The record is a 148-nucleotide sequence from Cysteiniphilum litorale, which matches "Group II catalytic intron D1-D4-7" in Rfam. The match comes from Rfam's covariance-model search (119 bits). Taxonomically the source falls in Cysteiniphilum (Bacteria, Pseudomonadati, Pseudomonadota, Fastidiosibacteraceae). Group II introns are found in rRNA, tRNA and mRNA of organelles in fungi, plants and protists, and also in mRNA in bacteria. Pairs were carried over by alignment from the consensus structure.
[Rfam]
RNA sequence: CCUGAUGUCCCAUCAUCAGUACCCUACUUGGACAUGCGUAUGGAGUAAUCCAUAUGUGUGAAGCUUCAAGAACAAUGUAGCCUGCAAUUAUUGGGAGAGAUAACCGUGAGGAAAUCUCAACUCUGCUAGCAUUAAAGCGGUAAGGAGC
Numbered sequence: 001c002c003u004g005a006u007g008u009c010c011c012a013u014c015a016u017c018a019g020u021a022c023c024c025u026a027c028u029u030g031g032a033c034a035u036g037c038g039u040a041u042g043g044a045g046u047a048a049u050c051c052a053u054a055u056g057u058g059u060g061a062a063g064c065u066u067c068a069a070g071a072a073c074a075a076u077g078u079a080g081c082c083u084g085c086a087a088u089u090a091u092u093g094g095g096a097g098a099g100a101u102a103a104c105c106g107u108g109a110g111g112a113a114a115u116c117u118c119a120a121c122u123c124u125g126c127u128a129g130c131a132u133u134a135a136a137g138c139g140g141u142a143a144g145g146a147g148c
Stems, first nucleotide, its partner, number of pairs: 002019006028069005033060012083095001085093003097118004104111002123140005